[Rfam]
RNA: mir-1426 microRNA precursor family
Organism: Merops nubicus
RNA sequence: CAAGGUUGAUCCUCUCUCCUUAACUCAUGCCGCUGUGCCUAUUUAUUUAUUUCACAAUUGUGUGAGUUGAGCACAGAGUGUCACCCCG
Numbered sequence: 001c002a003a004g005g006u007u008g009a010u011c012c013u014c015u016c017u018c019c020u021u022a023a024c025u026c027a028u029g030c031c032g033c034u035g036u037g038c039c040u041a042u043u044u045a046u047u048u049a050u051u052u053c054a055c056a057a058u059u060g061u062g063u064g065a066g067u068u069g070a071g072c073a074c075a076g077a078g079u080g081u082c083a084c085c086c087c088g
Base pairs, nucleotide, nucleotide: 004086005085007083008082009081010080012078013077019071020070021069022068023067024066025065026064027063028062034056035055036054037053
Dot-bracket structure: ...((.((((.((.....((((((((((.....((((...............)))).....)))))))))).....)).)))).))..